[Rfam]
RNA sequence: ACCGCUGAGCCAUCUCUCCAGCACUAGAUUUACUUUUUGAAGUUUAAAAAUUUAGAGUAGGGCUGGAGAGAUGGCUCAGCGGU
Numbered sequence: 001a002c003c004g005c006u007g008a009g010c011c012a013u014c015u016c017u018c019c020a021g022c023a024c025u026a027g028a029u030u031u032a033c034u035u036u037u038u039g040a041a042g043u044u045u046a047a048a049a050a051u052u053u054a055g056a057g058u059a060g061g062g063c064u065g066g067a068g069a070g071a072u073g074g075c076u077c078a079g080c081g082g083u
Base pairs, nucleotide, nucleotide: 002082003081004080005079006078007077008076009075010074011073012072013071014070015069016068017067018066019065020064021063022062024060025059026058
A member of the RNA family "mir-3473 microRNA precursor family" from Nannospalax galili, 83 nucleotides long. Its family is annotated with cellular response to mechanical stimulus, RISC complex and miRNA-mediated post-transcriptional gene silencing in the Gene Ontology.